[Rfam]
RNA sequence: UUCAGGAUGUACAACCUGGUCGAUGUAGUAAAAAUCAUUCUCAUCACCGGGUGCACAUUCGGUCA
Numbered sequence: 001u002u003c004a005g006g007a008u009g010u011a012c013a014a015c016c017u018g019g020u021c022g023a024u025g026u027a028g029u030a031a032a033a034a035u036c037a038u039u040c041u042c043a044u045c046a047c048c049g050g051g052u053g054c055a056c057a058u059u060c061g062g063u064c065a
Base pairs, nucleotide, nucleotide: 003062005060006059007058008057009056010055012053013052015050017049018048019047022045024043025042027041028040